[Rfam]
RNA: leuA-Halobacteria RNA
RNA sequence: GACGGCAGAGGAUAGAGUAAGUCGCCACGCGGCGGCUGGUCGAGAAAUUCGAC
Dot-bracket structure: ...................(((((((....)))))))................
Numbered sequence: 001g002a003c004g005g006c007a008g009a010g011g012a013u014a015g016a017g018u019a020a021g022u023c024g025c026c027a028c029g030c031g032g033c034g035g036c037u038g039g040u041c042g043a044g045a046a047a048u049u050c051g052a053c
Stems, first nucleotide, its partner, number of pairs: 020037007